[Rfam]
RNA sequence: AUACUUACCUGGCAAGGGAUAUAUCGUGAUCAAGAAGGCAGUUCACCCAGAGCGAGGCUCAGCCAUUGCACUCCGGCUGUGCUGACCCCUGCGAAUUUCCCAAAUGUGGAAAUCUCGAUUGCAGAAUUUCUGGUAGUGGGGGACUGCGUUCGCGCUCUCCAG
Numbered sequence: 001a002u003a004c005u006u007a008c009c010u011g012g013c014a015a016g017g018g019a020u021a022u023a024u025c026g027u028g029a030u031c032a033a034g035a036a037g038g039c040a041g042u043u044c045a046c047c048c049a050g051a052g053c054g055a056g057g058c059u060c061a062g063c064c065a066u067u068g069c070a071c072u073c074c075g076g077c078u079g080u081g082c083u084g085a086c087c088c089c090u091g092c093g094a095a096u097u098u099c100c101c102a103a104a105u106g107u108g109g110a111a112a113u114c115u116c117g118a119u120u121g122c123a124g125a126a127u128u129u130c131u132g133g134u135a136g137u138g139g140g141g142g143a144c145u146g147c148g149u150u151c152g153c154g155c156u157c158u159c160c161a162g
Base pairs, nucleotide, nucleotide: 012122013121014120015119016048017047018046021043023042024041026039027038049090050089052087054086056083057082058081060079061078062077063076064075092117093116094115095113096111097110099109100108137161138160139159140158141157143156145154146153147152
Shown here is a 162-nucleotide RNA sequence from Hucho hucho, a member of the family "U1 spliceosomal RNA".
Pairs were carried over by alignment from the consensus structure, which is taken from published work.